[Rfam]
RNA sequence: UGAUCAUUAGCAAAAUUUUUAGAAUGCAGUUUCUCAUUUGCCAUGGACAUGACCAUAAAAUAAUUUCCCACUAACUAUUUUAUCUGCUACCUCGCUAGCAUGAAGUCUAUUGGGACCAUUU
Numbered sequence: 001u002g003a004u005c006a007u008u009a010g011c012a013a014a015a016u017u018u019u020u021a022g023a024a025u026g027c028a029g030u031u032u033c034u035c036a037u038u039u040g041c042c043a044u045g046g047a048c049a050u051g052a053c054c055a056u057a058a059a060a061u062a063a064u065u066u067c068c069c070a071c072u073a074a075c076u077a078u079u080u081u082a083u084c085u086g087c088u089a090c091c092u093c094g095c096u097a098g099c100a101u102g103a104a105g106u107c108u109a110u111u112g113g114g115a116c117c118a119u120u121u
Stems, first nucleotide, its partner, number of pairs: 004052004011045002026041004067114004076105001085100003
Dot-bracket structure: ...((((...((.............((((........))))..))...))))..............((((.....(........(((..........)))....).....)))).......